[Rfam]
RNA: Purine riboswitch aptamer
RNA sequence: AAAUAAAAAUAAAACAAACCCCAUAUAUUCCCGAUAAUAUGGUUCGGGAGUCUCUACGAAGUGACCGUAAACCACUUCUCUAUGGACGGUGCAGCUUUCAUG
Numbered sequence: 001a002a003a004u005a006a007a008a009a010u011a012a013a014a015c016a017a018a019c020c021c022c023a024u025a026u027a028u029u030c031c032c033g034a035u036a037a038u039a040u041g042g043u044u045c046g047g048g049a050g051u052c053u054c055u056a057c058g059a060a061g062u063g064a065c066c067g068u069a070a071a072c073c074a075c076u077u078c079u080c081u082a083u084g085g086a087c088g089g090u091g092c093a094g095c096u097u098u099c100a101u102g
Base pairs, nucleotide, nucleotide: 021085022084023083024082025081029049030048031047032046033045034044058078059077060076061075062074063073